[Rfam]
RNA sequence: UGGCACCCAUCGUGGGGCUCCUGGCACAAAGGGCUCAACGAGGGAGCCGUCCUGAGAUGCAUGCAUAAGAAGGGAACUAAGAGUUUUGUGACCAACGCUAUGUGGGAGCCUGCUGCACCACUUGAGUCACGGUAAGUGGACGGUGAUCCCUUUUUUUCCGACAUGGGUCAGGCAUUAAGUGACACUUUGUGUCAGGUUUAAAUAAAGCUUUAAAGACAAGAGGGAAAAAGGCUAAAAAAAAAAAAGAAGAUUUAUUGCAGUACUUUCAAUUUAUUCAUAAGGUUUG
Numbered sequence: 001u002g003g004c005a006c007c008c009a010u011c012g013u014g015g016g017g018c019u020c021c022u023g024g025c026a027c028a029a030a031g032g033g034c035u036c037a038a039c040g041a042g043g044g045a046g047c048c049g050u051c052c053u054g055a056g057a058u059g060c061a062u063g064c065a066u067a068a069g070a071a072g073g074g075a076a077c078u079a080a081g082a083g084u085u086u087u088g089u090g091a092c093c094a095a096c097g098c099u100a101u102g103u104g105g106g107a108g109c110c111u112g113c114u115g116c117a118c119c120a121c122u123u124g125a126g127u128c129a130c131g132g133u134a135a136g137u138g139g140a141c142g143g144u145g146a147u148c149c150c151u152u153u154u155u156u157u158c159c160g161a162c163a164u165g166g167g168u169c170a171g172g173c174a175u176u177a178a179g180u181g182a183c184a185c186u187u188u189g190u191g192u193c194a195g196g197u198u199u200a201a202a203u204a205a206a207g208c209u210u211u212a213a214a215g216a217c218a219a220g221a222g223g224g225a226a227a228a229a230g231g232c233u234a235a236a237a238a239a240a241a242a243a244a245a246g247a248a249g250a251u252u253u254a255u256u257g258c259a260g261u262a263c264u265u266u267c268a269a270u271u272u273a274u275u276c277a278u279a280a281g282g283u284u285u286g
Stems, first nucleotide, its partner, number of pairs: 006032002012027003033047004085136002091133002097128001098126002101117005144170003148167003176212003179208002220266004225261001229253003233249001